[Rfam]
RNA sequence: UGUUGCGCCCCUUCGGGGCGUUCCUCCCUGAACCUUGGCCACCUCGCGACAUCGCGAGGUGGCUUUUUUUAUACCCU
Numbered sequence: 001u002g003u004u005g006c007g008c009c010c011c012u013u014c015g016g017g018g019c020g021u022u023c024c025u026c027c028c029u030g031a032a033c034c035u036u037g038g039c040c041a042c043c044u045c046g047c048g049a050c051a052u053c054g055c056g057a058g059g060u061g062g063c064u065u066u067u068u069u070u071a072u073a074c075c076c077u
Stems, first nucleotide, its partner, number of pairs: 009018003039062009

A member of the RNA family "Makes More Granules Regulator RNA (mmgR)" from Allosphingosinicella deserti, 77 nucleotides long. The organism belongs to Allosphingosinicella, within Bacteria. The base pairs follow the family's consensus structure.